[Rfam]
RNA: U7 small nuclear RNA
Organism: Tupaia belangeri
RNA sequence: UACCAUUACAGCUCUUUUAGAAUUUGUCUAGGAGGUUUUCUGGUUUUUACCAGAAAGCCUAG
Number, nucleotide and partner (000 for none) at each position: 001u000002a000003c000004c000005a000006u000007u000008a000009c000010a000011g000012c000013u000014c000015u000016u000017u000018u000019a000020g000021a000022a000023u000024u000025u000026g000027u000028c000029u000030a000031g000032g000033a000034g059035g058036u057037u056038u055039u054040c053041u052042g051043g050044u049045u000046u000047u000048u000049a044050c043051c042052a041053g040054a039055a038056a037057g036058c035059c034060u000061a000062g000